[Rfam]
A member of the RNA family "Archaeal large subunit ribosomal RNA" from Candidatus Methanohalarchaeum thermophilum, 375 nucleotides of a longer RNA.
RNA sequence: AGUAGUAGCAGCAAAGUCGGGUAAGAAUCCCGACCACCGAAAGGGCCAGGGUUCCUCGGCAAUGUUCGUCAGCCGAGGGUUAGCCGGGUCCUAAGGCUGUACGUAACACGAUGCAGCCGAAUGGAAAGCAGGUUAAUAUUCCUGCGCCACCCGUGUACUUUGCCAGUUGAGGAACGCUUAAGGAUAAGAUAUGCAGGGUCGUCACCCUGUCCAAGUCCUGAAAUUCAGGGAGAACCGUAAUGGUGAGAACUGAACGAAAGGAUGAUGGCGUAAGAUAUCUGAUUCCUUGGGCCCAUGAAAACCUCAAUUGGAUGGAAACGGGUGCCCGUACCAAGAACUGACACAGGUGCCCUGGCUUAGAAAGCCCAGGUGUGU
Numbered sequence: 001a002g003u004a005g006u007a008g009c010a011g012c013a014a015a016g017u018c019g020g021g022u023a024a025g026a027a028u029c030c031c032g033a034c035c036a037c038c039g040a041a042a043g044g045g046c047c048a049g050g051g052u053u054c055c056u057c058g059g060c061a062a063u064g065u066u067c068g069u070c071a072g073c074c075g076a077g078g079g080u081u082a083g084c085c086g087g088g089u090c091c092u093a094a095g096g097c098u099g100u101a102c103g104u105a106a107c108a109c110g111a112u113g114c115a116g117c118c119g120a121a122u123g124g125a126a127a128g129c130a131g132g133u134u135a136a137u138a139u140u141c142c143u144g145c146g147c148c149a150c151c152c153g154u155g156u157a158c159u160u161u162g163c164c165a166g167u168u169g170a171g172g173a174a175c176g177c178u179u180a181a182g183g184a185u186a187a188g189a190u191a192u193g194c195a196g197g198g199u200c201g202u203c204a205c206c207c208u209g210u211c212c213a214a215g216u217c218c219u220g221a222a223a224u225u226c227a228g229g230g231a232g233a234a235c236c237g238u239a240a241u242g243g244u245g246a247g248a249a250c251u252g253a254a255c256g257a258a259a260g261g262a263u264g265a266u267g268g269c270g271u272a273a274g275a276u277a278u279c280u281g282a283u284u285c286c287u288u289g290g291g292c293c294c295a296u297g298a299a300a301a302c303c304u305c306a307a308u309u310g311g312a313u314g315g316a317a318a319c320g321g322g323u324g325c326c327c328g329u330a331c332c333a334a335g336a337a338c339u340g341a342c343a344c345a346g347g348u349g350c351c352c353u354g355g356c357u358u359a360g361a362a363a364g365c366c367c368a369g370g371u372g373u374g375u
Base pairs, nucleotide, nucleotide: 016034017033018032019031020030021029035372036371037370038369043352044351045350046349049332050331054078055077056076057075058074059073063071064070085328086327087326090124091123095118096117097116098115099114100113102110103109128145129144130143131142132141148324149323150322151321152320153319154318170304171303172302176292177291178290179289180288181287182286183285184284187280188279189278190277191276193210194209195208196207197206215263216262217261218260224254225253226252227251228250234244235243236242269274338347339346354366355365356364